[Rfam]
RNA: T-box leader
Organism: Mediterraneibacter hominis
RNA sequence: GUAAAAACAGUGAAGAGGAAUAGUAAGAGCGUACUGUUUUAUCAGAGACCUGCCGGCAGGUGUGAGGCAGGAGACAGGCACUCCCAACUCACCUUGGAGUUCUCCUGCUGAAUGCGAUAUGUAAUUGGUAUUGUCAAUGGCGUAUGAGAAAUAGGCAGGGGCGGAGCUUCCCGUUACAGAAGAAAUGAGUGCAUUUAUCAUGGAACCUGUGAUAAAUGAAUAAGAGUGGUACCACGGAAAAAAGCCUUUUCGUCUCUUAA
Number, nucleotide and partner (000 for none) at each position: 001g000002u000003a000004a000005a000006a000007a100008c099009a000010g000011u000012g000013a000014a000015g095016a094017g093018g092019a000020a000021u000022a000023g000024u000025a000026a000027g083028a082029g081030c000031g079032u000033a000034c000035u000036g000037u000038u074039u073040u072041a000042u000043c000044a000045g000046a000047g000048a000049c071050c070051u069052g068053c067054c066055g000056g000057c000058a000059g000060g000061u000062g000063u000064g000065a000066g054067g053068c052069a051070g050071g049072a040073g039074a038075c000076a000077g000078g000079c031080a000081c029082u028083c027084c000085c000086a000087a000088c000089u000090c000091a000092c018093c017094u016095u015096g000097g000098a000099g008100u007101u000102c000103u160104c159105c158106u157107g156108c155109u154110g000111a000112a000113u000114g000115c000116g000117a000118u000119a000120u000121g000122u000123a000124a000125u000126u000127g000128g000129u000130a000131u000132u000133g000134u000135c000136a000137a000138u000139g000140g000141c000142g000143u000144a000145u000146g000147a000148g000149a000150a000151a000152u000153a000154g109155g108156c107157a106158g105159g104160g103161g000162c173163g172164g171165a000166g000167c000168u000169u000170c000171c164172c163173g162174u000175u000176a000177c000178a000179g000180a000181a000182g000183a000184a000185a000186u000187g000188a000189g000190u000191g000192c218193a217194u216195u215196u214197a213198u212199c211200a210201u209202g208203g000204a000205a000206c000207c000208u202209g201210u200211g199212a198213u197214a196215a195216a194217u193218g192219a000220a000221u000222a000223a257224g256225a255226g254227u000228g000229g000230u000231a000232c000233c000234a253235c252236g251237g250238a249239a248240a247241a000242a000243a000244g000245c000246c000247u240248u239249u238250u237251c236252g235253u234254c226255u225256c224257u223258u000259a000260a000